[Rfam]
RNA sequence: UCGAUUUCGUCGGGAUCUACCUCCUCCCAGAGACUGACGGAUACGGUCGACUUUCACCUCCUCCCGAUCGUCGACCAUCUAUAUGACGCCCGCCGCACCUCCUCCCGCGGCGGGCGUUGUGC
Numbered sequence: 001u002c003g004a005u006u007u008c009g010u011c012g013g014g015a016u017c018u019a020c021c022u023c024c025u026c027c028c029a030g031a032g033a034c035u036g037a038c039g040g041a042u043a044c045g046g047u048c049g050a051c052u053u054u055c056a057c058c059u060c061c062u063c064c065c066g067a068u069c070g071u072c073g074a075c076c077a078u079c080u081a082u083a084u085g086a087c088g089c090c091c092g093c094c095g096c097a098c099c100u101c102c103u104c105c106c107g108c109g110g111c112g113g114g115c116g117u118u119g120u121g122c
Stems, first nucleotide, its partner, number of pairs: 007040003011036003016031002045076007054067001086117011
The family of this 122-nucleotide sequence from Mesorhizobium hungaricum is "Alphaproteobacterial ar14". Rfam's curators write: Smr14C2 was renamed NfeR1 (Nodule Formation Efficiency RNA) highly expressed in salt stress and during the symbiotic interaction on legume roots. It is annotated as a small RNA. It scores 89 bits against the family's covariance model. The source organism's lineage runs through Bacteria, Pseudomonadati, Hyphomicrobiales, Phyllobacteriaceae and Mesorhizobium. Pairs were carried over by alignment from the consensus structure.